[Rfam]
RNA sequence: CCUGAGAAACCCGAAAGGUCGAACGGGGAGAUUCAGCGCGGCCCGGAUAACCGCGGCGAGUCGGCAACGUGCGACCGUUGGCGUUCGCGCCGACGGCUCCGUGUCCGUUCCGUCCGCGGCCGAACGUGUGCACUUCUCCCCCUGUAGGACGUCGCGACCCGUUGGGUGCCGGUCUAAGGCGUGCGGUCUAGUCCGUUCGAGUUUUCGCUCGUUCGAAACCGCGAACGCCCGACCGGCGACCUACCGACGGUACGAUCAUGGCGAGGGGCCGCGAUCAGUUCGCGUCCGGCCAAUCUCAAGUACGGACGGUAAAUCCGAAGCGCGGACCUAGCGCCGCAUCCGGACCCGUCCGACUGCUGGCGAUUGCGUUCUCGGACAGACCCCUGUUACACGCCGGUCGGCGGCGCUAUAGCUUUGGGUACUUUCAGGACCCGUCUUGAAACACGG
Dot-bracket structure: (((((((.((((....(..(.(((((................................................))))).))....((((((.....................................................................................................................................................................................................................................................................................................................)))))).........))))..)))))))..((((........))))
Numbered sequence: 001c002c003u004g005a006g007a008a009a010c011c012c013g014a015a016a017g018g019u020c021g022a023a024c025g026g027g028g029a030g031a032u033u034c035a036g037c038g039c040g041g042c043c044c045g046g047a048u049a050a051c052c053g054c055g056g057c058g059a060g061u062c063g064g065c066a067a068c069g070u071g072c073g074a075c076c077g078u079u080g081g082c083g084u085u086c087g088c089g090c091c092g093a094c095g096g097c098u099c100c101g102u103g104u105c106c107g108u109u110c111c112g113u114c115c116g117c118g119g120c121c122g123a124a125c126g127u128g129u130g131c132a133c134u135u136c137u138c139c140c141c142c143u144g145u146a147g148g149a150c151g152u153c154g155c156g157a158c159c160c161g162u163u164g165g166g167u168g169c170c171g172g173u174c175u176a177a178g179g180c181g182u183g184c185g186g187u188c189u190a191g192u193c194c195g196u197u198c199g200a201g202u203u204u205u206c207g208c209u210c211g212u213u214c215g216a217a218a219c220c221g222c223g224a225a226c227g228c229c230c231g232a233c234c235g236g237c238g239a240c241c242u243a244c245c246g247a248c249g250g251u252a253c254g255a256u257c258a259u260g261g262c263g264a265g266g267g268g269c270c271g272c273g274a275u276c277a278g279u280u281c282g283c284g285u286c287c288g289g290c291c292a293a294u295c296u297c298a299a300g301u302a303c304g305g306a307c308g309g310u311a312a313a314u315c316c317g318a319a320g321c322g323c324g325g326a327c328c329u330a331g332c333g334c335c336g337c338a339u340c341c342g343g344a345c346c347c348g349u350c351c352g353a354c355u356g357c358u359g360g361c362g363a364u365u366g367c368g369u370u371c372u373c374g375g376a377c378a379g380a381c382c383c384c385u386g387u388u389a390c391a392c393g394c395c396g397g398u399c400g401g402c403g404g405c406g407c408u409a410u411a412g413c414u415u416u417g418g419g420u421a422c423u424u425u426c427a428g429g430a431c432c433c434g435u436c437u438u439g440a441a442a443c444a445c446g447g
Stems, first nucleotide, its partner, number of pairs: 001429007009420004017082001020081001022079005087407006432447004